[Rfam]
A member of the RNA family "Cyano-1 RNA" from Cyanomargarita calcarea, 74 nucleotides long. The family's RNA type in Rfam is small RNA.

Nucleotides: 074
Base pairs, nucleotide, nucleotide: 031069032068033067034066035065036064037063038062039061040060041058042057043056
Number, partner (000 for none) and nucleotide at each position: 001000u002000a003000g004000u005000g006000u007000g008000u009000g010000a011000g012000g013000a014000g015000u016000a017000a018000g019000u020000u021000g022000a023000a024000a025000a026000u027000a028000a029000g030000a031069a032068g033067c034066g035065c036064c037063u038062g039061g040060g041058g042057u043056g044000g045000a046000a047000a048000c049000a050000c051000g052000g053000u054000a055000a056043c057042a058041c059000u060040c061039c062038c063037a064036g065035g066034c067033g068032c069031u070000u071000u072000u073000u074000a